[Rfam]
RNA sequence: AGAUGUUCCACAGGGCCGACCCGAGACCACAUGAAGUUAUCAUAUGUGUCUAAGCUACACAUCUCGUGUGUUCUCAGGUCGCCCCUGCUGAAUUCUC
Numbered sequence: 001a002g003a004u005g006u007u008c009c010a011c012a013g014g015g016c017c018g019a020c021c022c023g024a025g026a027c028c029a030c031a032u033g034a035a036g037u038u039a040u041c042a043u044a045u046g047u048g049u050c051u052a053a054g055c056u057a058c059a060c061a062u063c064u065c066g067u068g069u070g071u072u073c074u075c076a077g078g079u080c081g082c083c084c085c086u087g088c089u090g091a092a093u094u095c096u097c
Base pairs, nucleotide, nucleotide: 007091008090011087012086013085014084017081018080019079023075024074025073026072028070029069030068031067032066
Shown here is a 97-nucleotide RNA from Medicago truncatula, a member of the family "MIR398 microRNA precursor family". The literature on the family includes a 2005 paper in Plant Physiol by Xie et al., "Expression of Arabidopsis MIRNA genes". The source organism's lineage runs through Eukaryota, Viridiplantae, Streptophytina, fabids and Medicago. The match comes from Rfam's covariance-model search (66 bits).